Annotation: The family of this 88-nucleotide RNA sequence from Gasterosteus aculeatus is "mir-15 microRNA precursor family".
RNA sequence: GGUCUCCUUACUGUAGCAGCACGUAAAUAUUGGAGUUAAGACUUGCUGAAGCCUCCAAUAUUGAUCGUGCUGCUGAAGCAAAGCUGAC
Numbered sequence: 001g002g003u004c005u006c007c008u009u010a011c012u013g014u015a016g017c018a019g020c021a022c023g024u025a026a027a028u029a030u031u032g033g034a035g036u037u038a039a040g041a042c043u044u045g046c047u048g049a050a051g052c053c054u055c056c057a058a059u060a061u062u063g064a065u066c067g068u069g070c071u072g073c074u075g076a077a078g079c080a081a082a083g084c085u086g087a088c
Base pairs, nucleotide, nucleotide: 001088003086006083014075015074016073017072018071019070020069021068022067023066024064026062027061028060029059030058031057032056033055034054035053
A search with the family's covariance model found it, with a score of 62 bits.
This family represents the related mir-15a and mir-15b sequences. In humans miR-15a and miR-16 are clustered within 0.5 kb at 13q14. This region has been shown to be deleted in more than half of B cell chronic lymphocytic leukaemias (CLL).
A reference for the family is Calin et al. (2002), "Frequent deletions and down-regulation of micro- RNA genes miR15 and miR16 at 13q14 in chronic lymphocytic leukemia", Proc Natl Acad Sci U S A.
The family is grouped with related families in Rfam's "mir-15 clan".